[Rfam]
Rfam assigns this 86-nucleotide RNA sequence from Shouchella oshimensis to the family "BsrC".

RNA sequence: UUCUUUUCAAACAAUAAGUGCCCUACCUCUCACUUAUCGUUACGGUUCCUAGACCGAGCCACUUGAAUGAAAAAAAUGUAUGCCGU
Numbered sequence: 001u002u003c004u005u006u007u008c009a010a011a012c013a014a015u016a017a018g019u020g021c022c023c024u025a026c027c028u029c030u031c032a033c034u035u036a037u038c039g040u041u042a043c044g045g046u047u048c049c050u051a052g053a054c055c056g057a058g059c060c061a062c063u064u065g066a067a068u069g070a071a072a073a074a075a076a077u078g079u080a081u082g083c084c085g086u
Stems, first nucleotide, its partner, number of pairs: 034066003039062002041058001043056005

The match comes from Rfam's covariance-model search (50 bits). About the family: The 301 nucleotide sequence from Kouji Nakamura has been trimmed to a highly conserved ~85 nucleotide long core to form this family. Taxonomically the source falls in Shouchella oshimensis (Bacteria, Bacillota, Bacillaceae, Shouchella). The family's consensus secondary structure was predicted with CMfinder. The family has 29 seed sequences and 572 matches in Rfam 15.1.